Shown here is a 127-nucleotide RNA from Mola mola, a member of the family "Small nucleolar RNA SNORA71".
From the family's description: The members of this family belong to the H/ACA class of snoRNAs which bind a number of proteins (including dyskerin, Gar1p and Nop10p) to form snoRNP complexes. This class of snoRNAs are thought to guide the sites of modification of uridines to pseudouridines by forming direct base pairing interactions with substrate RNAs. This family includes U71 (SNORA71), ACA39 (SNORA39) and ACA60 (SNORA60). U71 and ACA60 are predicted to guide the pseudouridylation of U406 and U1004 in 18S rRNA respectively.
A reference for the family is Ganot et al. (1997), "The family of box ACA small nucleolar RNAs is defined by an evolutionarily conserved secondary structure and ubiquitous sequence elements essential for RNA accumulation", Genes Dev.
Pairs were carried over by alignment from the consensus structure, which was predicted with PFOLD.
RNA sequence: CCCUGUAUCGAAAGUGAUCGAGGCAUCUUUGUAGCCAGGUCAUUGAUAGUACAGGAAGAAGAAACUGCGAGCCUUUCCCGUGUUUGAAGGAUUGUCUGUUCCUCUCAAACCCUGGUGCUCCCAGACA
Numbered sequence: 001c002c003c004u005g006u007a008u009c010g011a012a013a014g015u016g017a018u019c020g021a022g023g024c025a026u027c028u029u030u031g032u033a034g035c036c037a038g039g040u041c042a043u044u045g046a047u048a049g050u051a052c053a054g055g056a057a058g059a060a061g062a063a064a065c066u067g068c069g070a071g072c073c074u075u076u077c078c079c080g081u082g083u084u085u086g087a088a089g090g091a092u093u094g095u096c097u098g099u100u101c102c103u104c105u106c107a108a109a110c111c112c113u114g115g116u117g118c119u120c121c122c123a124g125a126c127a
Base pairs, nucleotide, nucleotide: 002055003054004053005052006051007050008049013044014043015042016041017040018039019038022036023035024034066123067122069120070119071118072117082110083109084108085107086106088103089102090101091100